[Rfam]
RNA sequence: GCCCUCACCUCGGGGGGCCCUUUCGGGCUGAGAUGCGGCAACGCGGACCCGUUGAACCUGAACCGGUUAGGACCGGCGGAGGGAAGGUGCGUGGCUUGGCC
Numbered sequence: 001g002c003c004c005u006c007a008c009c010u011c012g013g014g015g016g017g018c019c020c021u022u023u024c025g026g027g028c029u030g031a032g033a034u035g036c037g038g039c040a041a042c043g044c045g046g047a048c049c050c051g052u053u054g055a056a057c058c059u060g061a062a063c064c065g066g067u068u069a070g071g072a073c074c075g076g077c078g079g080a081g082g083g084a085a086g087g088u089g090c091g092u093g094g095c096u097u098g099g100c101c
Base pairs, nucleotide, nucleotide: 006089007088008087009086010085011051012050013049014048017028018027019026020025035044036043037042057082058081059080063076064075065074066073

The record is a 101-nucleotide RNA from Gemmobacter lutimaris, which matches "TPP riboswitch aptamer (THI element)" in Rfam. The base pairs follow the family's consensus structure, which is taken from published work. The match comes from Rfam's covariance-model search (70 bits). Vitamin B(1) in its active form thiamin pyrophosphate (TPP) is an essential coenzyme that is synthesised by coupling of pyrimidine and thiazole moieties in bacteria.